[Rfam]
RNA sequence: CCCGGCAAUCACUUGCCGGGCUGUUUUUAUGAUGUCCCUGCGGGACA
Dot-bracket structure: ((((((((....)))))))).............(((((...))))).
The record is a 47-nucleotide sequence from Desulfonema ishimotonii, which matches "Acido-Lenti-1 RNA" in Rfam. By type it is a small RNA. The family's consensus secondary structure is taken from published work. It scores 39 bits against the family's covariance model.